[Rfam]
RNA sequence: GCCGCGGCCCGGGCCCCUCUGGCGCGUCUCGUCUGCGAGCGCGUGAUGUCGGACCGCAUCG
Number, nucleotide and partner (000 for none) at each position: 001g000002c000003c000004g000005c000006g055007g054008c000009c052010c051011g050012g049013g000014c000015c000016c000017c000018u000019c000020u000021g000022g044023c043024g042025c041026g040027u000028c039029u038030c037031g000032u000033c000034u000035g000036c000037g030038a029039g028040c026041g025042c024043g023044u022045g000046a000047u000048g000049u012050c011051g010052g009053a000054c007055c006056g000057c000058a000059u000060c000061g000
RNA: terC RNA